RNA: mir-103/107 microRNA precursor family
RNA sequence: CUGUUCUCUCAGCCUCUUUACGGUGCUGCCUUGUGGAAUGUAAUCAAGCAGCAUUGUACAGGGCUAUGAUGGCGCAG
Numbered sequence: 001c002u003g004u005u006c007u008c009u010c011a012g013c014c015u016c017u018u019u020a021c022g023g024u025g026c027u028g029c030c031u032u033g034u035g036g037a038a039u040g041u042a043a044u045c046a047a048g049c050a051g052c053a054u055u056g057u058a059c060a061g062g063g064c065u066a067u068g069a070u071g072g073c074g075c076a077g
Stems, first nucleotide, its partner, number of pairs: 014063004019058010030048004